[Rfam]
RNA: small Cajal body-specific RNA 18
RNA sequence: CUGCUGCUGCUGAUGUGACAAGUGUGCAGUCUGAGUUCUAGGAACCAGGCGAUGGAGUGUGCUAACCAUUGAGGCCU
Number, nucleotide and partner (000 for none) at each position: 001c000002u000003g075004c074005u073006g000007c000008u000009g000010c000011u000012g000013a000014u000015g000016u000017g000018a000019c000020a000021a000022g000023u000024g000025u000026g000027c000028a000029g000030u000031c000032u000033g000034a000035g000036u000037u000038c048039u047040a000041g045042g000043a000044a000045c041046c000047a039048g038049g000050c000051g000052a000053u000054g000055g000056a000057g000058u000059g000060u000061g000062c000063u000064a000065a000066c000067c000068a000069u000070u000071g000072a000073g005074g004075c003076c000077u000